The family of this 265-nucleotide RNA sequence from Iocasia frigidifontis is "Bacterial large signal recognition particle RNA". The match comes from Rfam's covariance-model search (204 bits). The base pairs follow the family's consensus structure, which is taken from published work. The source organism's lineage runs through Bacteria, Bacillati, Halanaerobiales, Halanaerobiaceae and Iocasia. About the family: The signal recognition particle (SRP) is a universally conserved ribonucleoprotein involved in the co-translational targeting of proteins to membranes.
[Rfam]
RNA sequence: CCGUACUAAAUGGGGGGGUAGCGGUACCCUGUAACCUGCAACCCGCUAUAGCAGGAUUGAAGCCGAGCUGAGGAUUUUCCUUUGUGGGGUCCGGCCUUGAUAAGUGGUGUUGACAAUCGGGUCUUACGCAAUGAAGCUUUAUGAACCCCGUCAGGUCCGGGAGGAAGCAGCGGUAAGUAAAUGUCUUCAUGUGCCGUAAGGGUGCUUGGUUCGAGCUAACUGUCAAGGUAACGCCUGGGAAGGGAGAUUCGAGGUAGGUGUACGG
Dot-bracket structure: ((((((..(((((((.(.(...).).))))....(((((...........))))))))....((.(.((..(((((..(((((.((((...((..((((((..(((((......((((((((((((((((.(((((.(((((.....((((....(((....)))....))))...)))))...)))))))...))))))...))))))))...))).)).))))))....)))))).)))))..))))).)).).)).))))))